[Rfam]
A member of the RNA family "U4 spliceosomal RNA" from Sciurus vulgaris, 138 nucleotides long. U4 small nuclear RNA (U4 snRNA) is a component of the major U2-dependent spliceosome. On this family, see Zwieb, Nucleic Acids Res 1997: "The uRNA database". The family's consensus secondary structure is taken from published work. The match comes from Rfam's covariance-model search (68 bits). It is annotated as a spliceosomal small nuclear RNA. Lineage of the source: Eukaryota > Eumetazoa > Vertebrata > Euteleostomi > Sciurus.
RNA sequence: AGCUUUCUGUAGUAGCAGUAUCAAAGCCAGUGAGGUUUAUCUGAGGCAUGAUUAUUGCUAAUUGAAAGCUUUCCCACAUCUCUAUCUUUCAGUCUCUGCAAAUGGUCAAAUGAUAGUGAUUGACCCUUGCUAUAGAAA
Numbered sequence: 001a002g003c004u005u006u007c008u009g010u011a012g013u014a015g016c017a018g019u020a021u022c023a024a025a026g027c028c029a030g031u032g033a034g035g036u037u038u039a040u041c042u043g044a045g046g047c048a049u050g051a052u053u054a055u056u057g058c059u060a061a062u063u064g065a066a067a068g069c070u071u072u073c074c075c076a077c078a079u080c081u082c083u084a085u086c087u088u089u090c091a092g093u094c095u096c097u098g099c100a101a102a103u104g105g106u107c108a109a110a111u112g113a114u115a116g117u118g119a120u121u122g123a124c125c126c127u128u129g130c131u132a133u134a135g136a137a138a
Stems, first nucleotide, its partner, number of pairs: 020052004026047003034042002084114003087110003091106001093104001095102001127138002130135001